[Rfam]
RNA sequence: UGCCCGGCACGGCGUAAAACUACCAACAUAAGGGACGCGACUCCGUAAAAAGCGUA
Numbered sequence: 001u002g003c004c005c006g007g008c009a010c011g012g013c014g015u016a017a018a019a020c021u022a023c024c025a026a027c028a029u030a031a032g033g034g035a036c037g038c039g040a041c042u043c044c045g046u047a048a049a050a051a052g053c054g055u056a
Stems, first nucleotide, its partner, number of pairs: 001014004006024002009021001032044003
RNA: GP20-b RNA